RNA sequence: AUUUAUAUAGUAUAUAAUUGUAUAUGUGACUUCCAAUCACAAGGACUAAAUAAUUUUAGUAUAAAUA
Numbered sequence: 001a002u003u004u005a006u007a008u009a010g011u012a013u014a015u016a017a018u019u020g021u022a023u024a025u026g027u028g029a030c031u032u033c034c035a036a037u038c039a040c041a042a043g044g045a046c047u048a049a050a051u052a053a054u055u056u057u058a059g060u061a062u063a064a065a066u067a
Stems, first nucleotide, its partner, number of pairs: 001066007010023004025041005046059005

A member of the RNA family "tRNA", 67 nucleotides long. The sequence is in the family's curated seed alignment.